[Rfam]
A member of the RNA family "Mammalian CPEB3 ribozyme" from Alligator mississippiensis, 79 nucleotides long.
The family's consensus secondary structure is taken from published work.
Taxonomically the source falls in Alligator (Eukaryota, Eumetazoa, Craniata, Archelosauria).
It scores 40 bits against the family's covariance model.

RNA sequence: AGAGGUCACAAAUUUGAGGCCAUAGCAGAAGUGCUCAUGGUGCAGCCUAUCAGAUUCCAAUGAAUAUGUGCAUUCUGCU
Numbered sequence: 001a002g003a004g005g006u007c008a009c010a011a012a013u014u015u016g017a018g019g020c021c022a023u024a025g026c027a028g029a030a031g032u033g034c035u036c037a038u039g040g041u042g043c044a045g046c047c048u049a050u051c052a053g054a055u056u057c058c059a060a061u062g063a064a065u066a067u068g069u070g071c072a073u074u075c076u077g078c079u
Stems, first nucleotide, its partner, number of pairs: 018047003024079007031043003051068002054065004